The record is a 94-nucleotide sequence from Panicum virgatum, which matches "Small nucleolar RNA snoR31/Z110/Z27" in Rfam. About the family: This family contains several related snoRNAs including R31, Z27 and Z110.
RNA sequence: UGUAUCAGAGGAUAAAACCUCGAUACAAUCUUAGGACACCUUCUGACACAGCGUUUGGGUUGUGAAUGAGAAGUCAAUUCUUUCUGAUGAUACU
Dot-bracket structure: .((((((....................................((...)).....................................)))))).
The family has 8 seed sequences and 571 matches in Rfam 15.1. A reference for the family is Chen et al. (2003), "The high diversity of snoRNAs in plants: identification and comparative study of 120 snoRNA genes from Oryza sativa", Nucleic Acids Res.